[Rfam]
RNA: TPP riboswitch aptamer (THI element)
RNA sequence: CAGAGGGACACGGGGUGCGCCGCUAAGAUUUCGCCGGCGCUGAGAAAACACCCGCUGAACCUGCUCUAGUUCGAACUAGCGAAGGGAUGUCACCUGAUGACACA
Numbered sequence: 001c002a003g004a005g006g007g008a009c010a011c012g013g014g015g016u017g018c019g020c021c022g023c024u025a026a027g028a029u030u031u032c033g034c035c036g037g038c039g040c041u042g043a044g045a046a047a048a049c050a051c052c053c054g055c056u057g058a059a060c061c062u063g064c065u066c067u068a069g070u071u072c073g074a075a076c077u078a079g080c081g082a083a084g085g086g087a088u089g090u091c092a093c094c095u096g097a098u099g100a101c102a103c104a
Base pairs, nucleotide, nucleotide: 007091008090009089010088011054012053013052014051016048017040018039019038020037021036060085061084062083066079067078068077069076